Rfam assigns this 54-nucleotide sequence from Triplophysa tibetana to the family "UnaL2 LINE 3' element".
[Rfam]
RNA sequence: UAAGAAGUGCACUGUAAGUCGCUUUGGAUAAAAGCAUCUGCCAAAUGACUAAAU
Numbered sequence: 001u002a003a004g005a006a007g008u009g010c011a012c013u014g015u016a017a018g019u020c021g022c023u024u025u026g027g028a029u030a031a032a033a034g035c036a037u038c039u040g041c042c043a044a045a046u047g048a049c050u051a052a053a054u
Stems, first nucleotide, its partner, number of pairs: 013043001014041003021035005

By type it is a cis-regulatory element. Rfam 15.1 lists 493,311 matches to the family in 99 species.